[Rfam]
RNA sequence: CAGUGUUACAGCUUUUAGAAUUUCUCUAGCAGGUUUUCCAGUCCUUACCAGAAAACCCCC
Numbered sequence: 001c002a003g004u005g006u007u008a009c010a011g012c013u014u015u016u017a018g019a020a021u022u023u024c025u026c027u028a029g030c031a032g033g034u035u036u037u038c039c040a041g042u043c044c045u046u047a048c049c050a051g052a053a054a055a056c057c058c059c060c
Stems, first nucleotide, its partner, number of pairs: 032057007041048002